[Rfam]
RNA sequence: UUCGGUAGAUCACACUUAAGCCCUGAUACCUGUGUCCUUGAGGAUAUGGUGUCCUGGCCGCAACCGUUGAGUUGCCAGGGUGCAGAAAGAAAUGACUGCAUCUCCCUAUUUGGAAAGGUGUCACAGGUGCCACAAU
Numbered sequence: 001u002u003c004g005g006u007a008g009a010u011c012a013c014a015c016u017u018a019a020g021c022c023c024u025g026a027u028a029c030c031u032g033u034g035u036c037c038u039u040g041a042g043g044a045u046a047u048g049g050u051g052u053c054c055u056g057g058c059c060g061c062a063a064c065c066g067u068u069g070a071g072u073u074g075c076c077a078g079g080g081u082g083c084a085g086a087a088a089g090a091a092a093u094g095a096c097u098g099c100a101u102c103u104c105c106c107u108a109u110u111u112g113g114a115a116a117g118g119u120g121u122c123a124c125a126g127g128u129g130c131c132a133c134a135a136u
Stems, first nucleotide, its partner, number of pairs: 006127001012121004017117001020058003025053006034045004060075005078103008088093001104113002

Rfam assigns this 136-nucleotide RNA from Erwinia sorbitola to the family "Molybdenum/Tungsten riboswitch aptamer (Moco RNA motif)".
For this family Rfam cites "in molybdenum cofactor and tungsten cofactor metabolism" (Regulski et al., Mol Microbiol, 2008).
It scores 76 bits against the family's covariance model.
The family's consensus secondary structure is taken from published work.